The record is an 81-nucleotide sequence, which matches "DUF3800-IX RNA" in Rfam. It is annotated as a small RNA. It is one of the family's seed sequences. The family's consensus secondary structure is taken from published work.

[Rfam]
RNA sequence: CCCCAUCCCGCGAAAAGUGACCGUCUGUGGUCGCCUGCCCCCAUCUAUGUUGAUGGAAUCGGGCUAGCGGGGUGGGUUGCU
Numbered sequence: 001c002c003c004c005a006u007c008c009c010g011c012g013a014a015a016a017g018u019g020a021c022c023g024u025c026u027g028u029g030g031u032c033g034c035c036u037g038c039c040c041c042c043a044u045c046u047a048u049g050u051u052g053a054u055g056g057a058a059u060c061g062g063g064c065u066a067g068c069g070g071g072g073u074g075g076g077u078u079g080c081u
Stems, first nucleotide, its partner, number of pairs: 001076002004074003008070004017034006037064004